[Rfam]
RNA sequence: GUGACAGAAGAGAGUGAGCACACAUGGUGGUUUUCUUGCAUGGUGCAUAUAUAAAGCUAGGGAGAGUCCAUGCUUGAGGCUAUGCGUGCUCACUUCUCUCUCUGUCAC
Numbered sequence: 001g002u003g004a005c006a007g008a009a010g011a012g013a014g015u016g017a018g019c020a021c022a023c024a025u026g027g028u029g030g031u032u033u034u035c036u037u038g039c040a041u042g043g044u045g046c047a048u049a050u051a052u053a054a055a056g057c058u059a060g061g062g063a064g065a066g067u068c069c070a071u072g073c074u075u076g077a078g079g080c081u082a083u084g085c086g087u088g089c090u091c092a093c094u095u096c097u098c099u100c101u102c103u104g105u106c107a108c
Base pairs, nucleotide, nucleotide: 001108002107003106004105005104006103007102008101010098011097012096013094014093015092016091017090018089019088020087021086023084024083025082026081027080028079
Rfam assigns this 108-nucleotide sequence from Ananas comosus to the family "mir-156 microRNA precursor family". Rfam describes the family as follows. This family represents the plant microRNA (miRNA) precursor mir-156. Its family is annotated with miRNA-mediated post-transcriptional gene silencing and RISC complex in the Gene Ontology. For this family Rfam cites "MicroRNAs in plants" (Reinhart et al., Genes Dev, 2002). The source organism's lineage runs through Eukaryota, Embryophyta, Magnoliopsida, Bromelioideae and Ananas.